[Rfam]
RNA sequence: AUAUUAUAGAUCAACGCAUUGAUUUAUAAGCAUGGAAAUCCCCUGAGUGAAACAACGAAUUGCUGUGUGUAGUCUUUGCCCAUCUCUUACGGUGGGCUUUUUUUUAC
Numbered sequence: 001a002u003a004u005u006a007u008a009g010a011u012c013a014a015c016g017c018a019u020u021g022a023u024u025u026a027u028a029a030g031c032a033u034g035g036a037a038a039u040c041c042c043c044u045g046a047g048u049g050a051a052a053c054a055a056c057g058a059a060u061u062g063c064u065g066u067g068u069g070u071a072g073u074c075u076u077u078g079c080c081c082a083u084c085u086c087u088u089a090c091g092g093u094g095g096g097c098u099u100u101u102u103u104u105u106a107c
Base pairs, nucleotide, nucleotide: 003019004018031045032044034042035041061069062068063067078097079096080095081094082093083092084091
A member of the RNA family "RprA RNA" from Jejuibacter calystegiae, 107 nucleotides long. The family's RNA type in Rfam is small RNA. It scores 102 bits against the family's covariance model. For this family Rfam cites "Regulation of RpoS by a novel small RNA: the characterization of RprA" (Majdalani et al., Mol Microbiol, 2001).